This 453-nucleotide part of an RNA from Culex quinquefasciatus belongs to the Rfam family "Eukaryotic large subunit ribosomal RNA".
Lineage of the source: Eukaryota > Eumetazoa > Protostomia > Eumetabola > Culex pipiens complex.
It is one of the family's seed sequences.
The family's consensus secondary structure is taken from published work.

RNA sequence: GCGAAUACAACAGCGAACGCUAUCUUAACGGAAUUCCUGUGCAGUACGAGAGGAACCACAGGUACGAACCAAUGGCUCAAUACUAGUUCGACCGGACUUUGGUAUAACGCUACGUUCGUUGGAUUAUGCCUGAACGCCUCUAAGGUCGUAACCAAACCGAGCUGAUAGUGUCUCCUAUAGGUGGUCGGUGAUCAUAUGGCUAAAAACCCGCAAGACUUGCUAGCGUGAUCUCACGCUGGCAUCUUAUUGAUCUGAUCUCGAAGACAGAGCCCUUGCGCGGCGCCGUACAGCAAGUAUCGAGAUACUGGAACGCUGGCGGCGCUGCUCAGCAUCGAUAUAUGAUUUCGAUACCUGAGACCUCCUACAAACGAUAGGUUUACAGGCUGGGAGUUGCGAGUUGCAGAGAGGUGUACAUUUCGAUCCUCUCAGACUACCCUUGCUUGGAGGUUGUGU
Numbered sequence: 001g002c003g004a005a006u007a008c009a010a011c012a013g014c015g016a017a018c019g020c021u022a023u024c025u026u027a028a029c030g031g032a033a034u035u036c037c038u039g040u041g042c043a044g045u046a047c048g049a050g051a052g053g054a055a056c057c058a059c060a061g062g063u064a065c066g067a068a069c070c071a072a073u074g075g076c077u078c079a080a081u082a083c084u085a086g087u088u089c090g091a092c093c094g095g096a097c098u099u100u101g102g103u104a105u106a107a108c109g110c111u112a113c114g115u116u117c118g119u120u121g122g123a124u125u126a127u128g129c130c131u132g133a134a135c136g137c138c139u140c141u142a143a144g145g146u147c148g149u150a151a152c153c154a155a156a157c158c159g160a161g162c163u164g165a166u167a168g169u170g171u172c173u174c175c176u177a178u179a180g181g182u183g184g185u186c187g188g189u190g191a192u193c194a195u196a197u198g199g200c201u202a203a204a205a206a207c208c209c210g211c212a213a214g215a216c217u218u219g220c221u222a223g224c225g226u227g228a229u230c231u232c233a234c235g236c237u238g239g240c241a242u243c244u245u246a247u248u249g250a251u252c253u254g255a256u257c258u259c260g261a262a263g264a265c266a267g268a269g270c271c272c273u274u275g276c277g278c279g280g281c282g283c284c285g286u287a288c289a290g291c292a293a294g295u296a297u298c299g300a301g302a303u304a305c306u307g308g309a310a311c312g313c314u315g316g317c318g319g320c321g322c323u324g325c326u327c328a329g330c331a332u333c334g335a336u337a338u339a340u341g342a343u344u345u346c347g348a349u350a351c352c353u354g355a356g357a358c359c360u361c362c363u364a365c366a367a368a369c370g371a372u373a374g375g376u377u378u379a380c381a382g383g384c385u386g387g388g389a390g391u392u393g394c395g396a397g398u399u400g401c402a403g404a405g406a407g408g409u410g411u412a413c414a415u416u417u418c419g420a421u422c423c424u425c426u427c428a429g430a431c432u433a434c435c436c437u438u439g440c441u442u443g444g445a446g447g448u449u450g451u452g453u
Stems, first nucleotide, its partner, number of pairs: 019169006029159003034064001036062006065118005073112003080105004085098005120154003128146004176350003180346002355451001357449001359447001361375004380443005386436003390431002397425001400422001402421001405418005